This 124-nucleotide RNA from Caenorhabditis brenneri belongs to the Rfam family "Caenorhabditis snoRNA ceN81".
The family's consensus secondary structure was predicted with RNAalifold.
A reference for the family is Jia et al. (2007), "Systematic identification of non-coding RNA 2,2,7-trimethylguanosine cap structures in Caenorhabditis elegans", BMC Mol Biol.
RNA sequence: UACGAAGAGUAGUCAUUUGUCUAGGUGUCACAUCUAUACAGAGUUACACUUUUCGAAUAUUAGUGCUUCUUCUCGUUGGAGUUGUUUUUUGUGAGCAAUUACCUCUAUUCUGUAAGCUACAUAU
Numbered sequence: 001u002a003c004g005a006a007g008a009g010u011a012g013u014c015a016u017u018u019g020u021c022u023a024g025g026u027g028u029c030a031c032a033u034c035u036a037u038a039c040a041g042a043g044u045u046a047c048a049c050u051u052u053u054c055g056a057a058u059a060u061u062a063g064u065g066c067u068u069c070u071u072c073u074c075g076u077u078g079g080a081g082u083u084g085u086u087u088u089u090u091g092u093g094a095g096c097a098a099u100u101a102c103c104u105c106u107a108u109u110c111u112g113u114a115a116g117c118u119a120c121a122u123a124u
Stems, first nucleotide, its partner, number of pairs: 003055008012047002016042005022036002025033002065117004072112001077107005082098006